Source information
A member of the RNA family "U5 spliceosomal RNA" from Coptis chinensis, 116 nucleotides long. Pairs were carried over by alignment from the consensus structure, which is taken from published work. U5 RNA is a component of both types of known spliceosome. The precise function of this molecule is unknown, though it is known that the 5' loop is required for splice site selection and p220 binding, and that both the 3' stem-loop and the Sm site are important for Sm protein binding and cap methylation. A reference for the family is Zwieb (1997), "The uRNA database", Nucleic Acids Res. It is annotated as a spliceosomal small nuclear RNA. The match comes from Rfam's covariance-model search (81 bits). The family has 180 seed sequences and 28,527 matches in Rfam 15.1.
[Rfam]
Nucleotides: 116
Base pairs, nucleotide, nucleotide: 003077004076005075006074008067009066010065011064012063013062014061015060016059017058018057027053028052029051030050031049032048033047034046097115098114099113100112101111102110
Number, partner (000 for none) and nucleotide at each position: 001000a002000g003077u004076u005075g006074c007000c008067c009066g010065a011064u012063g013062a014061g015060u016059a017058u018057a019000g020000a021000g022000c023000g024000a025000a026000c027053u028052a029051u030050u031049c032048u033047u034046u035000c036000a037000c038000c039000u040000u041000u042000u043000a044000c045000u046034a047033a048032a049031g050030a051029a052028u053027a054000c055000c056000a057018u058017g059016u060015a061014c062013u063012c064011a065010u066009c067008g068000u069000a070000u071000a072000a073000a074006g075005c076004a077003g078000a079000a080000u081000a082000c083000u084000c085000c086000u087000a088000u089000u090000u091000u092000u093000g094000a095000a096000g097115g098114g099113a100112u101111u102110u103000c104000c105000u106000u107000u108000c109000g110102a111101a112100a113099u114098c115097c116000c